[Rfam]
A member of the RNA family "Plant small nucleolar RNA R71" from Macleaya cordata, 107 nucleotides long. The base pairs follow the family's consensus structure, which was predicted with PFOLD. It scores 53 bits against the family's covariance model. By type it is a C/D-box small nucleolar RNA. The literature on the family includes a 2003 paper in Trends Plant Sci by Brown et al., "Plant snoRNAs: functional evolution and new modes of gene expression". The family has 25 seed sequences and 278,378 matches in Rfam 15.1.
RNA sequence: AUUUGGUGAUGAGGGCAAGAUGCACAUAACUUCUUGAAUCUCUCCCAAUACUCAUAUAAACUCUCUCCAUUUUGUUGCUGAACACCACAUAUUUCUUUCCUAAUGUU
Numbered sequence: 001a002u003u004u005g006g007u008g009a010u011g012a013g014g015g016c017a018a019g020a021u022g023c024a025c026a027u028a029a030c031u032u033c034u035u036g037a038a039u040c041u042c043u044c045c046c047a048a049u050a051c052u053c054a055u056a057u058a059a060a061c062u063c064u065c066u067c068c069a070u071u072u073u074g075u076u077g078c079u080g081a082a083c084a085c086c087a088c089a090u091a092u093u094u095c096u097u098u099c100c101u102a103a104u105g106u107u
Base pairs, nucleotide, nucleotide: 001107003105006101057074058073060071